[Rfam]
The family of this 98-nucleotide sequence from Danionella cerebrum is "Small nucleolar RNA SNORD16". The family's consensus secondary structure was predicted with PFOLD. Rfam 15.1 lists 1,321 matches to the family in 655 species. Lineage of the source: Eukaryota > Teleostei > Clupeocephala > Cypriniformes > Danionella. The literature on the family includes a 2001 paper in EMBO J by Huttenhofer et al., "RNomics: an experimental approach that identifies 201 candidates for novel, small, non-messenger RNAs in mouse".
RNA sequence: UGCGAUGAUGGUGUAAUUUGCGUCUGACUCCUCGUACGGGGACAGUUGCCUGCUGUCAAAUCCUGUCCUGGAAGUUUGAAGACCAUUAACUCUGAGCA
Numbered sequence: 001u002g003c004g005a006u007g008a009u010g011g012u013g014u015a016a017u018u019u020g021c022g023u024c025u026g027a028c029u030c031c032u033c034g035u036a037c038g039g040g041g042a043c044a045g046u047u048g049c050c051u052g053c054u055g056u057c058a059a060a061u062c063c064u065g066u067c068c069u070g071g072a073a074g075u076u077u078g079a080a081g082a083c084c085a086u087u088a089a090c091u092c093u094g095a096g097c098a
Stems, first nucleotide, its partner, number of pairs: 001098003021081001023079002030071002034067001039063002041057005